[Rfam]
RNA sequence: AGGUUCAGAGAGCACGAUUCCUAACCCUAGGCGAGUUCAUACUUCCUGUCCGGUGAGAUUACUGUUUUUGUCUCCAGCUUUCAGUAAGUAACAGGAAGUUUUCCGUGGCGCCCCGGUUGUGAUAAAAGAUUACAAAAAAAAAAAAGCUUGGAGUGUGCUCUCUGAAGCUCGGUGUCUCCGGGCUCGAGCGUGCCGUGUUGUGGACAGCCAGGCUGCCGCUAAGAGGUCUCCCCUCUGCCGCAGUGCGCUCGAGUCCGGAGGAUCAGCACACACUGAGCAGAUCAAACUGAGCAUGGCUACUCUUUGCACAUCCUUCCAGUGGUCAUGCAGAAGUAGCCCCUGCUCAAACACAU
Numbered sequence: 001a002g003g004u005u006c007a008g009a010g011a012g013c014a015c016g017a018u019u020c021c022u023a024a025c026c027c028u029a030g031g032c033g034a035g036u037u038c039a040u041a042c043u044u045c046c047u048g049u050c051c052g053g054u055g056a057g058a059u060u061a062c063u064g065u066u067u068u069u070g071u072c073u074c075c076a077g078c079u080u081u082c083a084g085u086a087a088g089u090a091a092c093a094g095g096a097a098g099u100u101u102u103c104c105g106u107g108g109c110g111c112c113c114c115g116g117u118u119g120u121g122a123u124a125a126a127a128g129a130u131u132a133c134a135a136a137a138a139a140a141a142a143a144a145a146g147c148u149u150g151g152a153g154u155g156u157g158c159u160c161u162c163u164g165a166a167g168c169u170c171g172g173u174g175u176c177u178c179c180g181g182g183c184u185c186g187a188g189c190g191u192g193c194c195g196u197g198u199u200g201u202g203g204a205c206a207g208c209c210a211g212g213c214u215g216c217c218g219c220u221a222a223g224a225g226g227u228c229u230c231c232c233c234u235c236u237g238c239c240g241c242a243g244u245g246c247g248c249u250c251g252a253g254u255c256c257g258g259a260g261g262a263u264c265a266g267c268a269c270a271c272a273c274u275g276a277g278c279a280g281a282u283c284a285a286a287c288u289g290a291g292c293a294u295g296g297c298u299a300c301u302c303u304u305u306g307c308a309c310a311u312c313c314u315u316c317c318a319g320u321g322g323u324c325a326u327g328c329a330g331a332a333g334u335a336g337c338c339c340c341u342g343c344u345c346a347a348a349c350a351c352a353u
Stems, first nucleotide, its partner, number of pairs: 005165012018152001042098005057089001059087006074146001079140003168277007177259017195241002200219004205215004222236004289345004295338006304330005312322002
This 353-nucleotide RNA sequence from Hemibagrus wyckioides belongs to the Rfam family "Vertebrate telomerase RNA". Rfam's curators write: Telomerase is a ribonucleoprotein reverse transcriptase that synthesises telomeric DNA. Telomerase RNAs differ greatly in sequence and structure between vertebrates, ciliates and yeasts, but they share a 5' pseudoknot structure close to the template sequence. Vertebrate telomerase RNAs have a 3' H/ACA snoRNA-like domain. On this family, see Chen et al., Cell 2000: "Secondary structure of vertebrate telomerase RNA". By type it is a non-coding RNA gene. Lineage of the source: Eukaryota > Bilateria > Vertebrata > Osteoglossocephalai > Hemibagrus. The base pairs follow the family's consensus structure, which is taken from published work.